The record is a 147-nucleotide sequence from Glycine max, which matches "MIR4371 microRNA precursor family" in Rfam.
Gene Ontology terms of the family: RISC complex and miRNA-mediated post-transcriptional gene silencing.
RNA sequence: CUGUUAAGUGAUGACAUGACAGACAAAGUGUCACAUCAUCACACCUUAUUAUAGACACCUCAUUGCCACAUCAUCAGCGCCAAUAAUGUGUCAGUGACAAUGCGUGAAGACAUGACACUCUGUCUGUUACAUCAUCACUUAAUGGAA
Number, nucleotide and partner (000 for none) at each position: 001c145002u144003g143004u142005u141006a140007a139008g138009u137010g136011a135012u134013g133014a132015c000016a000017u129018g128019a127020c126021a125022g124023a123024c122025a121026a000027a119028g118029u117030g116031u115032c114033a113034c000035a000036u110037c109038a000039u107040c106041a105042c104043a000044c102045c000046u100047u000048a000049u097050u096051a095052u094053a000054g092055a091056c090057a089058c088059c000060u000061c000062a000063u000064u000065g000066c000067c000068a000069c000070a087071u086072c000073a084074u083075c000076a000077g000078c000079g000080c000081c000082a000083a074084u073085a000086a071087u070088g058089u057090g056091u055092c054093a000094g052095u051096g050097a049098c000099a000100a046101u000102g044103c000104g042105u041106g040107a039108a000109g037110a036111c000112a000113u033114g032115a031116c030117a029118c028119u027120c000121u025122g024123u023124c022125u021126g020127u019128u018129a017130c000131a000132u014133c013134a012135u011136c010137a009138c008139u007140u006141a005142a004143u003144g002145g001146a000147a000